RNA sequence: UAGGUUCCGGUUCACGCCACGCCAUCGGGGCGGGGCGACCCGGGUCACC
Number, nucleotide and partner (000 for none) at each position: 001u000002a000003g049004g048005u047006u000007c043008c042009g041010g040011u000012u000013c000014a000015c037016g036017c035018c034019a000020c032021g031022c030023c029024a000025u000026c000027g000028g000029g023030g022031c021032g020033g000034g018035g017036c016037g015038a000039c000040c010041c009042g008043g007044g000045u000046c000047a005048c004049c003
Description: This 49-nucleotide RNA sequence from Bifidobacterium pullorum belongs to the Rfam family "L31-Actinobacteria ribosomal protein leader". For this family Rfam cites "Discovery of 20 novel ribosomal leader candidates in bacteria and archaea" (Eckert and Weinberg, BMC Microbiol, 2020). It scores 45 bits against the family's covariance model.